[Rfam]
RNA: MIR7502 microRNA precursor family
RNA sequence: UAUAAAAAAUUUCAUCUAUUUCUACGGUUAAAAAUUUCCCCCUGCACAUUAGCACGAGGUAUACACUAAACGCAAUUGUUUAGUUAUUUCGUUAGCCACUCCAAUUUUUAACAAUAGAAAUGGAUAAAUUUUUUAACA
Numbered sequence: 001u002a003u004a005a006a007a008a009a010u011u012u013c014a015u016c017u018a019u020u021u022c023u024a025c026g027g028u029u030a031a032a033a034a035u036u037u038c039c040c041c042c043u044g045c046a047c048a049u050u051a052g053c054a055c056g057a058g059g060u061a062u063a064c065a066c067u068a069a070a071c072g073c074a075a076u077u078g079u080u081u082a083g084u085u086a087u088u089u090c091g092u093u094a095g096c097c098a099c100u101c102c103a104a105u106u107u108u109u110a111a112c113a114a115u116a117g118a119a120a121u122g123g124a125u126a127a128a129u130u131u132u133u134u135a136a137c138a
Stems, first nucleotide, its partner, number of pairs: 003136001005134005011128002014125003018121007028111006